[Rfam]
RNA sequence: AAGACCUUUAACAAUAGUCCUGUGAGGCUAGAAAGGAUACGAUAAGCAGUUUUCUAAAGUGUACGUAUGCCCUUUUCCAUCUCCAGGAAAAGGGUUUUUUAUGU
Numbered sequence: 001a002a003g004a005c006c007u008u009u010a011a012c013a014a015u016a017g018u019c020c021u022g023u024g025a026g027g028c029u030a031g032a033a034a035g036g037a038u039a040c041g042a043u044a045a046g047c048a049g050u051u052u053u054c055u056a057a058a059g060u061g062u063a064c065g066u067a068u069g070c071c072c073u074u075u076u077c078c079a080u081c082u083c084c085a086g087g088a089a090a091a092g093g094g095u096u097u098u099u100u101a102u103g104u
Stems, first nucleotide, its partner, number of pairs: 003038001005036005015030005046062003050058003065099001067097001069095010
Dot-bracket structure: ..(.(((((.....(((((......))))).))))).).......(((.(((...))).)))..(.(.((((((((((.......)))))))))).).).....